Background
Shown here is a 415-nucleotide sequence from Gemmobacter lanyuensis, a member of the family "Bacterial RNase P class A". By type it is a ribozyme. It scores 280 bits against the family's covariance model.
RNA sequence: GCGGAUGGCUGGAUGACCGCGUGCGUCGCAAGACGUGCGAGGAAAGUCCGGACUCCAUGAAGUAAGGGUGCCGGGUAACGCCCGGCGGGGGCAACCCCAGGGAAAGCGCCACAGAGAACAGUCUGCCGCCGCUUCGGCGUCGGUGAGGGUGAAAAGGUGGGGUAAGAGCCCACCGCGGACCUGGCAACAGGGACGGCAUGGCAAGCCCCACCCGGAGCAAUGCCGAAUAGGGGCCUCGCGCGGAAAGGUCCGACGUUCAGCCGCAAGGCUGUCGGAGACCUCCGCAAGGGAGACUUCAGCCCAAGAGAGCCCGGGUUGGCAGCUAGAGCCCGUCAGUAAUGGCGGGACCAGAGGAAUGGUCAUCUAGGGGUGGCAACACCCCGGACAGAAUCCGGCUUACAGGCCAUCCGCGCAA
Number, nucleotide and partner (000 for none) at each position: 001g411002c410003g409004g408005a407006u406007g405008g404009c403010u402011g400012g364013a363014u362015g361016a360017c359018c358019g000020c039021g038022u037023g036024c035025g034026u033027c032028g000029c000030a000031a000032g027033a026034c025035g024036u023037g022038c021039g020040a000041g000042g000043a000044a398045a397046g396047u000048c395049c394050g393051g392052a391053c217054u216055c215056c214057a000058u000059g000060a000061a000062g000063u000064a000065a000066g213067g212068g211069u210070g209071c085072c084073g083074g082075g081076u000077a000078a000079c000080g000081c075082c074083c073084g072085g071086c100087g098088g097089g096090g095091g000092c000093a000094a000095c090096c089097c088098c087099a000100g086101g208102g207103a000104a000105a000106g206107c205108g202109c201110c200111a000112c000113a000114g000115a000116g000117a000118a000119c000120a000121g000122u000123c148124u147125g144126c143127c142128g141129c000130c139131g138132c137133u000134u000135c000136g000137g132138c131139g130140u000141c128142g127143g126144u125145g000146a000147g124148g123149g000150u000151g000152a000153a000154a000155a000156g174157g173158u172159g171160g170161g169162g000163u000164a000165a000166g000167a000168g000169c161170c160171c159172a158173c157174c156175g197176c195177g194178g000179a000180c191181c190182u189183g188184g000185c000186a000187a000188c183189a182190g181191g180192g000193a000194c177195g176196g000197c175198a000199u000200g110201g109202c108203a000204a000205g107206c106207c102208c101209c070210a069211c068212c067213c066214g056215g055216a054217g053218c000219a000220a000221u321222g320223c319224c318225g000226a000227a000228u000229a000230g000231g312232g311233g310234c309235c000236u307237c000238g000239c000240g000241c000242g000243g000244a000245a000246a000247g000248g000249u000250c000251c000252g000253a000254c000255g000256u000257u000258c000259a000260g000261c000262c000263g000264c000265a000266a000267g000268g000269c000270u000271g000272u000273c000274g000275g000276a000277g000278a000279c000280c000281u000282c000283c000284g000285c000286a000287a000288g000289g000290g000291a000292g000293a000294c000295u000296u000297c000298a000299g000300c000301c000302c000303a000304a000305g000306a000307g236308a000309g234310c233311c232312c231313g000314g000315g000316u000317u000318g224319g223320c222321a221322g000323c000324u000325a000326g000327a000328g000329c346330c345331c344332g343333u342334c341335a340336g000337u000338a000339a000340u335341g334342g333343c332344g331345g330346g329347a000348c000349c000350a000351g000352a000353g000354g000355a000356a000357u000358g018359g017360u016361c015362a014363u013364c012365u000366a000367g000368g000369g000370g000371u000372g000373g000374c000375a000376a000377c000378a000379c000380c000381c000382c000383g000384g000385a000386c000387a000388g000389a000390a000391u052392c051393c050394g049395g048396c046397u045398u044399a000400c011401a000402g010403g009404c008405c007406a006407u005408c004409c003410g002411c001412g000413c000414a000415a000